[Rfam]
RNA sequence: AUUUAGGAUCAAGCGCCAGACCUAAUCCUGAUUAGGUGACGAGGAAUGAGCUAAUCGAAGUUUUCGGCGGGUGGCUCAAGGCUAUGCGGUCUAAAGAAAUAAGACAAAUCAAAGCUGUCAGGCUCUGGACAAAACUUAUUUCAAGCAUAUGA
Number, nucleotide and partner (000 for none) at each position: 001a000002u000003u000004u000005a000006g000007g000008a000009u000010c000011a000012a000013g000014c000015g000016c000017c000018a000019g000020a037021c036022c035023u034024a033025a032026u031027c000028c000029u000030g000031a026032u025033u024034a023035g022036g021037u020038g000039a000040c000041g000042a000043g000044g000045a000046a000047u078048g077049a076050g075051c074052u000053a000054a000055u067056c066057g065058a064059a000060g000061u000062u000063u000064u058065c057066g056067g055068c000069g000070g000071g000072u000073g000074g051075c050076u049077c048078a047079a092080g091081g090082c089083u088084a000085u000086g000087c000088g083089g082090u081091c080092u079093a000094a000095a000096g142097a141098a140099a139100u138101a137102a136103g000104a000105c000106a000107a000108a000109u000110c127111a126112a000113a124114g123115c122116u121117g000118u000119c000120a000121g116122g115123c114124u113125c000126u111127g110128g000129a000130c000131a000132a000133a000134a000135c000136u102137u101138a100139u099140u098141u097142c096143a000144a000145g000146c000147a000148u000149a000150u000151g000152a000
Overview
This 152-nucleotide RNA sequence from Facklamia hominis belongs to the Rfam family "glmS glucosamine-6-phosphate activated ribozyme aptamer". The base pairs follow the family's consensus structure, which is taken from published work. The literature on the family includes a 2004 paper in Nature by Winkler et al., "Control of gene expression by a natural metabolite-responsive ribozyme". The match comes from Rfam's covariance-model search (98 bits). This entry contains a glucosamine-6-phosphate activated ribozyme that is found in the mRNA for GlmS. GlmS is an enzyme that uses fructose-6-phosphate and glutamine to generate glucosamine-6-phosphate. The ribozyme catalyses self cleavage of the glmS mRNA that is thought to regulate GlmS activity.